[Rfam]
RNA sequence: AUGUGCCUGGCUCCCUGUAUGCCAUUUGCAGAUCUCCCCGUUUUUCCGGUGGGCUUCGCGGAUGGCGUAUGAGGAGCCAAGCAUAU
Number, nucleotide and partner (000 for none) at each position: 001a086002u085003g084004u083005g082006c081007c000008u079009g078010g077011c076012u075013c074014c073015c000016u071017g070018u069019a068020u067021g066022c065023c064024a063025u000026u000027u060028g059029c058030a000031g000032a000033u000034c000035u000036c000037c000038c000039c000040g000041u000042u000043u000044u000045u000046c000047c000048g000049g000050u000051g000052g000053g000054c000055u000056u000057c000058g029059c028060g027061g000062a000063u024064g023065g022066c021067g020068u019069a018070u017071g016072a000073g014074g013075a012076g011077c010078c009079a008080a000081g006082c005083a004084u003085a002086u001

Shown here is an 86-nucleotide RNA sequence from Senna tora, a member of the family "mir-160 microRNA precursor family". Rfam links the family to the GO terms RISC complex and miRNA-mediated post-transcriptional gene silencing. The literature on the family includes a 2002 paper in Cell by Rhoades et al., "Prediction of plant microRNA targets".